Nucleotides: 131
Base pairs, nucleotide, nucleotide: 002061004059018047019046020045021044022043023042025040026039028037075123076122077121078120079119080118088110089109090108091107092106
Number, partner (000 for none) and nucleotide at each position: 001000u002061a003000a004059a005000u006000c007000a008000u009000a010000u011000u012000u013000a014000u015000a016000u017000u018047u019046a020045g021044u022043c023042c024000c025040u026039g027000a028037u029000a030000c031000u032000g033000u034000u035000g036000u037028a038000g039026u040025g041000a042023g043022g044021g045020c046019u047018g048000g049000c050000u051000c052000a053000g054000a055000u056000g057000g058000c059004u060000g061002u062000c063000a064000c065000a066000g067000u068000a069000a070000g071000c072000u073000c074000u075123g076122u077121a078120g079119u080118u081000u082000a083000u084000a085000g086000u087000g088110c089109u090108c091107u092106g093000u094000c095000a096000u097000g098000g099000g100000a101000c102000g103000a104000c105000c106092u107091g108090g109089g110088g111000a112000c113000a114000a115000g116000u117000u118080g119079g120078c121077u122076g123075c124000a125000g126000c127000c128000a129000u130000u131000g
The family of this 131-nucleotide RNA from Orycteropus afer is "Small nucleolar RNA SNORA5".
About the family: ACA5 is a member of the H/ACA class of snoRNA that guide the sites of modification of uridines to pseudouridines.
Rfam classes the family as an H/ACA-box small nucleolar RNA.
Rfam 15.1 lists 2,226 matches to the family in 629 species.